[Rfam]
The family of this 175-nucleotide RNA from Clostridium sp. DSM 8431 is "Lysine riboswitch aptamer". A search with the family's covariance model found it, with a score of 114 bits. The base pairs follow the family's consensus structure, which is taken from published work. NCBI's taxonomy places the organism under Bacteria, Bacillati, Bacillota, Eubacteriales, Clostridium.
RNA sequence: GAAAGAGGUAGAGGCGCGGUACUUAUUAGUAAUACUGUGGACGUAAGCAGAAUGAUAUAGUACGAAAGGAAUUACCGCCGAAGCUUAGAAUUAAUGCUUUGAUAUUCUAAGGCUGGGCUUAUAUAAAAUAUAUAUAAGACUGUCACAAAUAAUUUUGUGUUGAGCUAUCAUUUGA
Numbered sequence: 001g002a003a004a005g006a007g008g009u010a011g012a013g014g015c016g017c018g019g020u021a022c023u024u025a026u027u028a029g030u031a032a033u034a035c036u037g038u039g040g041a042c043g044u045a046a047g048c049a050g051a052a053u054g055a056u057a058u059a060g061u062a063c064g065a066a067a068g069g070a071a072u073u074a075c076c077g078c079c080g081a082a083g084c085u086u087a088g089a090a091u092u093a094a095u096g097c098u099u100u101g102a103u104a105u106u107c108u109a110a111g112g113c114u115g116g117g118c119u120u121a122u123a124u125a126a127a128a129u130a131u132a133u134a135u136a137a138g139a140c141u142g143u144c145a146c147a148a149a150u151a152a153u154u155u156u157g158u159g160u161u162g163a164g165c166u167a168u169c170a171u172u173u174g175a
Stems, first nucleotide, its partner, number of pairs: 007169005016078006023071002033062007082114004086109006115141002118138008144159006